[Rfam]
RNA sequence: AGACGACAAUACUAAACCAUUCGCGAGAAUGGGGCGGAAAACCCAUGGGUCUCCUGUAGACAGCCGGGCUGCCGAA
Numbered sequence: 001a002g003a004c005g006a007c008a009a010u011a012c013u014a015a016a017c018c019a020u021u022c023g024c025g026a027g028a029a030u031g032g033g034g035c036g037g038a039a040a041a042c043c044c045a046u047g048g049g050u051c052u053c054c055u056g057u058a059g060a061c062a063g064c065c066g067g068g069c070u071g072c073c074g075a076a
Base pairs, nucleotide, nucleotide: 012037013036017032018031019030020029021028022027040070042068043067046066047065048064049061050060051059